[Rfam]
RNA sequence: UUUUAUGAUGACUCCAUUGUCGACCGGGCGGACAUAUUAAGUAUUGACGAUGAAGUAGUCUUUGCACUAUACCUCUCUUUGUGUACAAAUUAAAGGCGAGGUAGCAUUGACAAUAUUGCUUUAUCGUCGAGAAGUGAUGAAUGGUCACAAGAUAGCUGAUC
Numbered sequence: 001u002u003u004u005a006u007g008a009u010g011a012c013u014c015c016a017u018u019g020u021c022g023a024c025c026g027g028g029c030g031g032a033c034a035u036a037u038u039a040a041g042u043a044u045u046g047a048c049g050a051u052g053a054a055g056u057a058g059u060c061u062u063u064g065c066a067c068u069a070u071a072c073c074u075c076u077c078u079u080u081g082u083g084u085a086c087a088a089a090u091u092a093a094a095g096g097c098g099a100g101g102u103a104g105c106a107u108u109g110a111c112a113a114u115a116u117u118g119c120u121u122u123a124u125c126g127u128c129g130a131g132a133a134g135u136g137a138u139g140a141a142u143g144g145u146c147a148c149a150a151g152a153u154a155g156c157u158g159a160u161c
Stems, first nucleotide, its partner, number of pairs: 007156001009154002017150004022146005035139005042133001044130003048126010058111003063106001070103006076096005
The record is a 161-nucleotide sequence from Torulaspora delbrueckii, which matches "Small nucleolar RNA snR70" in Rfam. The organism belongs to Torulaspora, within Eukaryota. It scores 106 bits against the family's covariance model. The family's RNA type in Rfam is C/D-box small nucleolar RNA. Its Rfam clan is "SNORD43 clan".